[Rfam]
Shown here is a 230-nucleotide sequence from Clostridium sp. 'deep sea', a member of the family "T-box leader".
It scores 143 bits against the family's covariance model.
Rfam's curators write: Uncharged tRNA acts as the effector for transcription antitermination of genes in the T-box leader family.
It is annotated as a cis-regulatory leader.
The base pairs follow the family's consensus structure, which is taken from published work.
The source organism's lineage runs through Bacteria, Bacillati, Bacillota, Clostridiaceae and Clostridium.

RNA sequence: AAAAAGGCUAUGAUAGGGAUUAGUAGUUUGAAGUAGAGUUACAGAGAGCUGGGGCUUGGUGUAACCCAGUACUAUACAACAAACGAACUCACUCUUGAGCCUGAACCUGAACAAAGUAGGGUAAACGGAUUUCCACCGUUAACAGGAAGGGGAUAUGAUUGUAUCCUACUAAGUGCUUAGUGUUAUACUAGGAAAAAGAGUGGUACCACGGGAAAAUACUCGUCUCUUAA
Numbered sequence: 001a002a003a004a005a006g007g008c009u010a011u012g013a014u015a016g017g018g019a020u021u022a023g024u025a026g027u028u029u030g031a032a033g034u035a036g037a038g039u040u041a042c043a044g045a046g047a048g049c050u051g052g053g054g055c056u057u058g059g060u061g062u063a064a065c066c067c068a069g070u071a072c073u074a075u076a077c078a079a080c081a082a083a084c085g086a087a088c089u090c091a092c093u094c095u096u097g098a099g100c101c102u103g104a105a106c107c108u109g110a111a112c113a114a115a116g117u118a119g120g121g122u123a124a125a126c127g128g129a130u131u132u133c134c135a136c137c138g139u140u141a142a143c144a145g146g147a148a149g150g151g152g153a154u155a156u157g158a159u160u161g162u163a164u165c166c167u168a169c170u171a172a173g174u175g176c177u178u179a180g181u182g183u184u185a186u187a188c189u190a191g192g193a194a195a196a197a198g199a200g201u202g203g204u205a206c207c208a209c210g211g212g213a214a215a216a217u218a219c220u221c222g223u224c225u226c227u228u229a230a
Stems, first nucleotide, its partner, number of pairs: 007100002015095004026084005037073003048070006102124001105122004126138003176192007197227004208223005